[Rfam]
RNA sequence: CAUGGUGACCGUAGAAACUAGCAUAGAAAAAAGUAGAUAUCUCAAGUGACUUUGUUCAUUUACGUUGGGAUAGACAAGUAACUACCUUUUCUAUUUUAGUUUCUAUGGUCACUUUG
Numbered sequence: 001c002a003u004g005g006u007g008a009c010c011g012u013a014g015a016a017a018c019u020a021g022c023a024u025a026g027a028a029a030a031a032a033g034u035a036g037a038u039a040u041c042u043c044a045a046g047u048g049a050c051u052u053u054g055u056u057c058a059u060u061u062a063c064g065u066u067g068g069g070a071u072a073g074a075c076a077a078g079u080a081a082c083u084a085c086c087u088u089u090u091c092u093a094u095u096u097u098a099g100u101u102u103c104u105a106u107g108g109u110c111a112c113u114u115u116g
Stems, first nucleotide, its partner, number of pairs: 001116002004113018023094008033085004038072008046063004